[Rfam]
RNA: Small nucleolar RNA SNORA64/SNORA10 family
RNA sequence: AUUCUCUCCACUCUGCACAGUUACACUACUUGUGGUGUGACUUUCGUACCGGAGAGAGACAGAAAAGAGUUCUUCAGGACCCUGAACUGGCCUCAUGGUGGCCUUUAUUUCUUUGAGGAGCACAACAGGU
Numbered sequence: 001a002u003u004c005u006c007u008c009c010a011c012u013c014u015g016c017a018c019a020g021u022u023a024c025a026c027u028a029c030u031u032g033u034g035g036u037g038u039g040a041c042u043u044u045c046g047u048a049c050c051g052g053a054g055a056g057a058g059a060c061a062g063a064a065a066a067g068a069g070u071u072c073u074u075c076a077g078g079a080c081c082c083u084g085a086a087c088u089g090g091c092c093u094c095a096u097g098g099u100g101g102c103c104u105u106u107a108u109u110u111c112u113u114u115g116a117g118g119a120g121c122a123c124a125a126c127a128g129g130u
Stems, first nucleotide, its partner, number of pairs: 002062002005059004011054005019042008070120005076114003084108001086106001089103004